Rfam assigns this 113-nucleotide sequence from Nakamurella multipartita to the family "Actinobacteria sRNA Ms_IGR-7". The literature on the family includes a 2013 paper in RNA by Li et al., "Identification of small RNAs in Mycobacterium smegmatis using heterologous Hfq". The match comes from Rfam's covariance-model search (53 bits). It is annotated as a small RNA.
[Rfam]
Nucleotides: 113
Base pairs, nucleotide, nucleotide: 002074003073004072005071006070007069008068009067010066011065012064013063015062016061017060020058021057022056023055027051028050029049031047033045034044
Number, partner (000 for none) and nucleotide at each position: 001000c002074g003073g004072a005071a006070a007069g008068g009067u010066g011065c012064u013063c014000c015062u016061g017060g018000u019000u020058c021057u022056g023055g024000u025000u026000c027051g028050a029049u030000u031047g032000g033045u034044c035000c036000c037000u038000c039000a040000g041000c042000a043000a044034g045033a046000c047031c048000u049029a050028u051027c052000u053000u054000c055023c056022c057021a058020g059000g060017u061016c062015a063013g064012a065011g066010c067009a068008c069007c070006u071005u072004u073003c074002c075000u076000c077000a078000u079000g080000a081000u082000c083000a084000a085000c086000a087000c088000u089000c090000u091000g092000c093000c094000g095000a096000u097000c098000a099000g100000a101000a102000u103000u104000a105000c106000g107000a108000u109000g110000a111000a112000a113000g